The record is a 66-nucleotide sequence from Allorhodopirellula solitaria, which matches "DUF3800-IX RNA" in Rfam. The source organism's lineage runs through Bacteria, Pseudomonadati, Pirellulales, Pirellulaceae and Allorhodopirellula. The match comes from Rfam's covariance-model search (59 bits). The family's consensus secondary structure is taken from published work. Rfam's curators write: Actinobacteria, Firmicutes (1 example), Nitrospirae, Proteobacteria, Verrucomicrobia (1 example).
RNA sequence: GACUCGGCAGCCGAACAGUCACCCUAAGGUGUGCGUGUCCGAAAAGGACUAGGCGUCGGGUUUUUU
Numbered sequence: 001g002a003c004u005c006g007g008c009a010g011c012c013g014a015a016c017a018g019u020c021a022c023c024c025u026a027a028g029g030u031g032u033g034c035g036u037g038u039c040c041g042a043a044a045a046g047g048a049c050u051a052g053g054c055g056u057c058g059g060g061u062u063u064u065u066u
Stems, first nucleotide, its partner, number of pairs: 001062008010054003018034002020031004037049004